[Rfam]
RNA sequence: GCCGAGUUAGGUCGCGCUAGCUUGCAACUCAAGUGGGGGCACCAAGAUGGUGGGACAUCGGUUCAACUCAUUUGGCAGGGCUUUGCUGUUGCAAUUUGCAGGCUCGCCCGUUCCAAGUUGUGAGUUGGGUCAUGUGGUUCGGGCUUAAGCUUGGUCCACGCGGCCCUUAGAGUGGAUGGAGGGCAAUGCGUGAGGCUGGUUUAACAGAGCUGCGAAAACCUCUCGCUCUCAACAGCGGAAGGAUUACGGGUUGGUGCACCGCUAGCCCAGAUUGUCUCAUGGGUUGAGACCUAGUUGUGAACCACCACCUUU
Number, nucleotide and partner (000 for none) at each position: 001g040002c039003c038004g023005a022006g021007u020008u019009a018010g017011g000012u000013c000014g000015c000016g000017c010018u009019a008020g007021c006022u005023u004024g000025c000026a000027a000028c037029u036030c035031a000032a000033g000034u000035g030036g029037g028038g003039g002040c001041a000042c000043c000044a311045a310046g309047a000048u307049g306050g305051u304052g303053g302054g000055a000056c299057a298058u293059c000060g291061g000062u288063u287064c286065a285066a284067c000068u282069c281070a280071u279072u000073u000074g276075g275076c274077a273078g268079g267080g266081c265082u264083u000084u000085g262086c261087u000088g260089u000090u258091g257092c000093a000094a255095u000096u000097u000098g000099c254100a000101g252102g251103c250104u249105c248106g247107c000108c242109c241110g000111u240112u239113c238114c237115a000116a000117g233118u232119u231120g230121u000122g228123a227124g226125u225126u000127g166128g165129g164130u163131c162132a000133u160134g159135u158136g157137g156138u000139u154140c153141g152142g151143g150144c149145u000146u000147a000148a000149g144150c143151u142152u141153g140154g139155u000156c137157c136158a135159c134160g133161c000162g131163g130164c129165c128166c127167u176168u175169a000170g000171a000172g000173u000174g000175g168176a167177u000178g223179g222180a221181g220182g219183g000184c000185a000186a000187u216188g000189c214190g213191u212192g000193a000194g000195g000196c207197u206198g205199g000200u000201u000202u000203a000204a000205c198206a197207g196208a000209g000210c000211u000212g191213c190214g189215a000216a187217a000218a000219c182220c181221u180222c179223u178224c000225g125226c124227u123228c122229u000230c120231a119232a118233c117234a000235g000236c000237g114238g113239a112240a111241g109242g108243a000244u000245u000246a000247c106248g105249g104250g103251u102252u101253g000254g099255u094256g000257c091258a090259c000260c088261g086262c085263u000264a082265g081266c080267c079268c078269a000270g000271a000272u000273u077274g076275u075276c074277u000278c000279a071280u070281g069282g068283g000284u066285u065286g064287a063288g062289a000290c000291c060292u000293a058294g000295u000296u000297g000298u057299g056300a000301a000302c053303c052304a051305c050306c049307a048308c000309c046310u045311u044312u000
Description: This 312-nucleotide RNA from Malus domestica belongs to the Rfam family "Plant signal recognition particle RNA". NCBI's taxonomy places the organism under Eukaryota, Mesangiospermae, Gunneridae, Pentapetalae, Malus.